[Rfam]
Source information
A member of the RNA family "glmS glucosamine-6-phosphate activated ribozyme aptamer", 165 nucleotides long. It scores 124 bits against the family's covariance model. This entry contains a glucosamine-6-phosphate activated ribozyme that is found in the mRNA for GlmS. GlmS is an enzyme that uses fructose-6-phosphate and glutamine to generate glucosamine-6-phosphate. Gene Ontology terms of the family: catalytic activity and regulation of gene expression.

RNA sequence: AGGUUUAAAAAAGCGCCAGAACUACACAGGACUGAAAGUGUAGUUGACGAGGUGGAGUUUUAUCGAAGUUUCGGCGGAUGACUCCCGGUUGACGUAUCACAACCGCAAUUAUUUACGUAAAACACAUGGGUGACUGUGUGCACAAAUGUAGAUAAUCUGAUACAC
Numbered sequence: 001a002g003g004u005u006u007a008a009a010a011a012a013g014c015g016c017c018a019g020a021a022c023u024a025c026a027c028a029g030g031a032c033u034g035a036a037a038g039u040g041u042a043g044u045u046g047a048c049g050a051g052g053u054g055g056a057g058u059u060u061u062a063u064c065g066a067a068g069u070u071u072c073g074g075c076g077g078a079u080g081a082c083u084c085c086c087g088g089u090u091g092a093c094g095u096a097u098c099a100c101a102a103c104c105g106c107a108a109u110u111a112u113u114u115a116c117g118u119a120a121a122a123c124a125c126a127u128g129g130g131u132g133a134c135u136g137u138g139u140g141c142a143c144a145a146a147u148g149u150a151g152a153u154a155a156u157c158u159g160a161u162a163c164a165c
Stems, first nucleotide, its partner, number of pairs: 020045008054085005063074004086105006109155007123140007